[Rfam]
RNA: Cyanobacteria transfer-messenger RNA
Organism: cyanobiont of Ornithocercus magnificus
RNA sequence: CUGCCAGAAUGUACAAGUCCGUCUCGGCGGACUUAGGUGAUCCACACCAGUGUCUCGGACAGCGGUUCGAUUCCGCUCAGCUCCAUUCCAUUUCUUAUUCCUGAUGGGGCUGCAAUGGUUUCGACGGGGCAUAAGGAGGGUGACUGAAGCCCGCUCUGUUCAGUCAGAGCAAACUCGUAAACGCGAACAACAUCGUUCGUUUCUCCCGUCAGACCGCCCCUGUGGCUGCCUGACCUUAUCUAAGGGAGAUGGGGUAAGAUCAGCCUUAUCACCCAAAUGAUCCACGGGGGUUGGAAGGCCCC
Numbered sequence: 001c002u003g004c005c006a007g008a009a010u011g012u013a014c015a016a017g018u019c020c021g022u023c024u025c026g027g028c029g030g031a032c033u034u035a036g037g038u039g040a041u042c043c044a045c046a047c048c049a050g051u052g053u054c055u056c057g058g059a060c061a062g063c064g065g066u067u068c069g070a071u072u073c074c075g076c077u078c079a080g081c082u083c084c085a086u087u088c089c090a091u092u093u094c095u096u097a098u099u100c101c102u103g104a105u106g107g108g109g110c111u112g113c114a115a116u117g118g119u120u121u122c123g124a125c126g127g128g129g130c131a132u133a134a135g136g137a138g139g140g141u142g143a144c145u146g147a148a149g150c151c152c153g154c155u156c157u158g159u160u161c162a163g164u165c166a167g168a169g170c171a172a173a174c175u176c177g178u179a180a181a182c183g184c185g186a187a188c189a190a191c192a193u194c195g196u197u198c199g200u201u202u203c204u205c206c207c208g209u210c211a212g213a214c215c216g217c218c219c220c221u222g223u224g225g226c227u228g229c230c231u232g233a234c235c236u237u238a239u240c241u242a243a244g245g246g247a248g249a250u251g252g253g254g255u256a257a258g259a260u261c262a263g264c265c266u267u268a269u270c271a272c273c274c275a276a277a278u279g280a281u282c283c284a285c286g287g288g289g290g291u292u293g294g295a296a297g298g299c300c301c302c
Base pairs, nucleotide, nucleotide: 017032018031019030020029021028022027036145037144038143040141041140042139043138047136048135050132051131052130053129054128055127056126057125061077062076063075064074065073078112079111080110081109082108083107084106085105086104087103153170154169155168156167157166158165212231216226217225218224245274246273248270249269250268251267252266253265254264255263287302288301289300290299291298292297